[Rfam]
RNA sequence: UGGUGAUGUCUCCUUACCACUAUCAAUGGAGGCACUCGAUUAUGCUGUGGGUUGAAAGACCUUAGACGCCAGUCGUCAGUAGUGUGAUGUGAGGGGGGGUUAAAUGCCCU
Numbered sequence: 001u002g003g004u005g006a007u008g009u010c011u012c013c014u015u016a017c018c019a020c021u022a023u024c025a026a027u028g029g030a031g032g033c034a035c036u037c038g039a040u041u042a043u044g045c046u047g048u049g050g051g052u053u054g055a056a057a058g059a060c061c062u063u064a065g066a067c068g069c070c071a072g073u074c075g076u077c078a079g080u081a082g083u084g085u086g087a088u089g090u091g092a093g094g095g096g097g098g099g100u101u102a103a104a105u106g107c108c109c110u
Stems, first nucleotide, its partner, number of pairs: 001019004007034007035093004039088008049062005065077004096110005

This 110-nucleotide RNA from Bacillus aerolatus belongs to the Rfam family "epsC RNA". The source organism's lineage runs through Bacteria, Bacillati, Caryophanales, Bacillaceae and Bacillus. Rfam classes the family as a cis-regulatory element.